Rfam assigns this 81-nucleotide RNA sequence from Clarias magur to the family "mir-194 microRNA precursor family". The organism belongs to Clarias, within Eukaryota.
[Rfam]
RNA sequence: UGGUGCUCGCUGGAUGUAACAGUCUCUCCAUAUGGAAGACUUCUAAGUGCCAGUGGAGGAGCUGUUACUUGCAGAGAGUCG
Numbered sequence: 001u002g003g004u005g006c007u008c009g010c011u012g013g014a015u016g017u018a019a020c021a022g023u024c025u026c027u028c029c030a031u032a033u034g035g036a037a038g039a040c041u042u043c044u045a046a047g048u049g050c051c052a053g054u055g056g057a058g059g060a061g062c063u064g065u066u067a068c069u070u071g072c073a074g075a076g077a078g079u080c081g
Stems, first nucleotide, its partner, number of pairs: 010074003016068008026058006033052003
The family's consensus secondary structure was predicted with RNAalifold.